[Rfam]
RNA sequence: CCCCACGGCCCUGUCUCCCAACCCUUGUACCAGUGGUGUGCUGCGGUCCCUGGUACAGGCAUGGGGGGCAGGGACCUGGGG
Numbered sequence: 001c002c003c004c005a006c007g008g009c010c011c012u013g014u015c016u017c018c019c020a021a022c023c024c025u026u027g028u029a030c031c032a033g034u035g036g037u038g039u040g041c042u043g044c045g046g047u048c049c050c051u052g053g054u055a056c057a058g059g060c061a062u063g064g065g066g067g068g069c070a071g072g073g074a075c076c077u078g079g080g081g
Stems, first nucleotide, its partner, number of pairs: 010072003014068005022059002026057007
The family of this 81-nucleotide sequence from Pteropus alecto is "mir-150 microRNA precursor family".
The literature on the family includes a 2006 paper in Genes Dev by Watanabe et al., "Identification and characterization of two novel classes of small RNAs in the mouse germline: retrotransposon-derived siRNAs in oocytes and germline small RNAs in testes".
The match comes from Rfam's covariance-model search (90 bits).
The source organism's lineage runs through Eukaryota, Teleostomi, Amniota, Boreoeutheria and Pteropus.